[Rfam]
The record is a 133-nucleotide RNA sequence from Histoplasma mississippiense, which matches "Group II catalytic intron D1-D4-7" in Rfam. Pairs were carried over by alignment from the consensus structure. A search with the family's covariance model found it, with a score of 41 bits. Taxonomically the source falls in Histoplasma (Eukaryota, Dikarya, leotiomyceta, Ajellomycetaceae). Gene Ontology term of the family: Group II intron splicing.
Nucleotides: 133
Stems, first nucleotide, its partner, number of pairs: 002019001004017004026067005031058002034055003038051005083099006101128002113120002
Number, partner (000 for none) and nucleotide at each position: 001000c002019c003000u004017g005016a006015u007014a008000a009000u010000c011000c012000a013000u014007u015006a016005u017004c018000u019002g020000a021000g022000c023000u024000c025000a026067a027066a028065c029064g030063g031058c032057a033000u034055g035054c036053a037000u038051a039050a040049g041048a042047a043000g044000u045000a046000a047042u048041u049040c050039u051038u052000u053036u054035g055034u056000u057032u058031g059000a060000a061000g062000c063030c064029c065028g066027u067026u068000a069000a070000a071000u072000a073000u074000u075000c076000a077000a078000u079000u080000a081000u082000a083099c084098c085097u086096a087095c088094c089000u090000a091000u092000u093000a094088g095087g096086u097085a098084g099083g100000u101128g102127a103000g104000c105000u106000a107000u108000a109000u110000u111000a112000c113120u114119a115000a116000g117000g118000a119114u120113a121000a122000g123000u124000a125000a126000a127102u128101u129000g130000a131000a132000u133000c